[Rfam]
A member of the RNA family "Small nucleolar RNA SNORD56" from Prolemur simus, 71 nucleotides long.
The literature on the family includes a 2002 paper in Mol Cell Biol by Galardi et al., "Purified box C/D snoRNPs are able to reproduce site-specific 2'-O-methylation of target RNA in vitro".
RNA sequence: CUACAAUGAUGGUAGUAUUUUUCAUCAAUAGCAGUUCACCUGGUAAGUGUUGAUACUUUGGGUCUGAAUAA
Numbered sequence: 001c002u003a004c005a006a007u008g009a010u011g012g013u014a015g016u017a018u019u020u021u022u023c024a025u026c027a028a029u030a031g032c033a034g035u036u037c038a039c040c041u042g043g044u045a046a047g048u049g050u051u052g053a054u055a056c057u058u059u060g061g062g063u064c065u066g067a068a069u070a071a
Base pairs, nucleotide, nucleotide: 002070003069008026009025010024011023